RNA sequence: CUGGCAUGAUGAGGAAGACAAUUUUAGUCUUAUCUAUUUGAUGAUAAAAUCCUCCUACUCAUUCUGA
Numbered sequence: 001c002u003g004g005c006a007u008g009a010u011g012a013g014g015a016a017g018a019c020a021a022u023u024u025u026a027g028u029c030u031u032a033u034c035u036a037u038u039u040g041a042u043g044a045u046a047a048a049a050u051c052c053u054c055c056u057a058c059u060c061a062u063u064c065u066g067a
Base pairs, nucleotide, nucleotide: 006062007061008060009059025046026045029040
A member of the RNA family "Small nucleolar RNA Z105" from Hordeum vulgare, 67 nucleotides long.
It scores 66 bits against the family's covariance model.
The family's RNA type in Rfam is C/D-box small nucleolar RNA.
Taxonomically the source falls in Hordeum vulgare (Eukaryota, Tracheophyta, Euphyllophyta, Spermatophyta).
On this family, see Chen et al., Nucleic Acids Res 2003: "The high diversity of snoRNAs in plants: identification and comparative study of 120 snoRNA genes from Oryza sativa".
The family has 11 seed sequences and 621 matches in Rfam 15.1.